[Rfam]
RNA sequence: ACUCUCUCAGCUCUGCUCAGUUGCGCCUGACUCCAGUGGUGCAGCUGUCGUUUUUGAGAGGGAAAGCAAAUGAGUUCAAAUUUGCACGGCAGGGAGUCCUCCUGCAGUGACCUCUCUGUUCCUUAUCAAACUCGACAUGU
Numbered sequence: 001a002c003u004c005u006c007u008c009a010g011c012u013c014u015g016c017u018c019a020g021u022u023g024c025g026c027c028u029g030a031c032u033c034c035a036g037u038g039g040u041g042c043a044g045c046u047g048u049c050g051u052u053u054u055u056g057a058g059a060g061g062g063a064a065a066g067c068a069a070a071u072g073a074g075u076u077c078a079a080a081u082u083u084g085c086a087c088g089g090c091a092g093g094g095a096g097u098c099c100u101c102c103u104g105c106a107g108u109g110a111c112c113u114c115u116c117u118g119u120u121c122c123u124u125a126u127c128a129a130a131c132u133c134g135a136c137a138u139g140u
Stems, first nucleotide, its partner, number of pairs: 002066002005063004011058003015054001019046008075129002078126001080123001084121001091117003094113001096111003
Rfam assigns this 140-nucleotide RNA sequence from Pseudonaja textilis to the family "Small nucleolar RNA SNORA64/SNORA10 family". Its family is annotated with nucleolus and RNA processing in the Gene Ontology. Rfam 15.1 lists 703 matches to the family in 311 species. The match comes from Rfam's covariance-model search (37 bits). By type it is an H/ACA-box small nucleolar RNA. Rfam's curators write: This family belongs to the H/ACA class of small nucleolar RNAs (snoRNAs) which act as guides in the the modification of uridines to pseudouridines. This family includes the human snoRNAs U64 and ACA10 and mouse MBI-29. Taxonomically the source falls in Pseudonaja (Eukaryota, Gnathostomata, Sauropsida, Squamata). For this family Rfam cites "Nucleolar localization signals of box H/ACA small nucleolar RNAs" (Narayanan et al., EMBO J, 1999).